[Rfam]
RNA sequence: CUACAUGACUCGGGGUGCCCUUCGUUGUGAAGGCUGAGAAAUACCCGUAUUACCUGAUCUGGAUAAUGCCAGCGUAGGGAAGUCAGAUGCCUGUCCG
Number, nucleotide and partner (000 for none) at each position: 001c000002u000003a000004c000005a000006u085007g084008a083009c082010u081011c047012g046013g045014g044015g000016u041017g034018c033019c032020c000021u030022u000023c000024g000025u000026u000027g000028u000029g000030a021031a000032g019033g018034c017035u000036g000037a000038g000039a000040a000041a016042u000043a000044c014045c013046c012047g011048u000049a000050u000051u000052a000053c078054c077055u076056g075057a000058u000059c072060u071061g070062g069063a000064u000065a000066a000067u000068g000069c062070c061071a060072g059073c000074g000075u056076a055077g054078g053079g000080a000081a010082g009083u008084c007085a006086g000087a000088u000089g000090c000091c000092u000093g000094u000095c000096c000097g000
This 97-nucleotide RNA from Tenebrionibacter intestinalis belongs to the Rfam family "TPP riboswitch aptamer (THI element)". Pairs were carried over by alignment from the consensus structure, which is taken from published work.